[Rfam]
RNA sequence: GUCGGGAGGCGGCAGCGAUACAACACCCGCAAGGGGAAAGCUGUCGGCCGGUCUGUAUCCCGGUUUCUAACCUCCCGACUUCCUCGG
Numbered sequence: 001g002u003c004g005g006g007a008g009g010c011g012g013c014a015g016c017g018a019u020a021c022a023a024c025a026c027c028c029g030c031a032a033g034g035g036g037a038a039a040g041c042u043g044u045c046g047g048c049c050g051g052u053c054u055g056u057a058u059c060c061c062g063g064u065u066u067c068u069a070a071c072c073u074c075c076c077g078a079c080u081u082c083c084u085c086g087g
Stems, first nucleotide, its partner, number of pairs: 001079008011045004016040001026035003046065006